[Rfam]
RNA: Small nucleolar RNA SNORD42
Organism: Synaphobranchus kaupii
RNA sequence: AUGCAAAUGAUGGAAACUUUAUUUUUGCAUCUGAAUGAAAUGAUGCUUUCAAAGGAACCACUGAUGCAU
Numbered sequence: 001a002u003g004c005a006a007a008u009g010a011u012g013g014a015a016a017c018u019u020u021a022u023u024u025u026u027g028c029a030u031c032u033g034a035a036u037g038a039a040a041u042g043a044u045g046c047u048u049u050c051a052a053a054g055g056a057a058c059c060a061c062u063g064a065u066g067c068a069u
Base pairs, nucleotide, nucleotide: 001069002068003067004066005065